[Rfam]
RNA: Actinobacteria sRNA Ms_IGR-5
RNA sequence: ACACGAGUAAGGAGGUGAUCCGAAGUUGAGUAGCUUUAGGACACGUGAGGUGGCCGUCCGCUAGCGCCAUCGCUCCCAUUGCUGGUGAUCGCCUGACGGCGCUGGCAAUACCCGACGGACACCCGAUUCCCGGGCGCCGACUUUGUCCAAUCGGCCUUAACGUUUCGCCGUUUACGGCGAGAAGUUGAGAAGCGCCCGGGAAUUGUCAUGU
Numbered sequence: 001a002c003a004c005g006a007g008u009a010a011g012g013a014g015g016u017g018a019u020c021c022g023a024a025g026u027u028g029a030g031u032a033g034c035u036u037u038a039g040g041a042c043a044c045g046u047g048a049g050g051u052g053g054c055c056g057u058c059c060g061c062u063a064g065c066g067c068c069a070u071c072g073c074u075c076c077c078a079u080u081g082c083u084g085g086u087g088a089u090c091g092c093c094u095g096a097c098g099g100c101g102c103u104g105g106c107a108a109u110a111c112c113c114g115a116c117g118g119a120c121a122c123c124c125g126a127u128u129c130c131c132g133g134g135c136g137c138c139g140a141c142u143u144u145g146u147c148c149a150a151u152c153g154g155c156c157u158u159a160a161c162g163u164u165u166c167g168c169c170g171u172u173u174a175c176g177g178c179g180a181g182a183a184g185u186u187g188a189g190a191a192g193c194g195c196c197c198g199g200g201a202a203u204u205g206u207c208a209u210g211u
Base pairs, nucleotide, nucleotide: 014058015057016056017055019053060106061105062104063103064102065101066100067099068098070096071095072094124205125204126203127202128201129200130199131198132197133196134195135194136193142183143182144181
Dot-bracket structure: .............((((.(.................................).)))).(((((((((.(((.....................))).))))))))).................(((((((((((((.....(((....................................))).........)))))))))))))......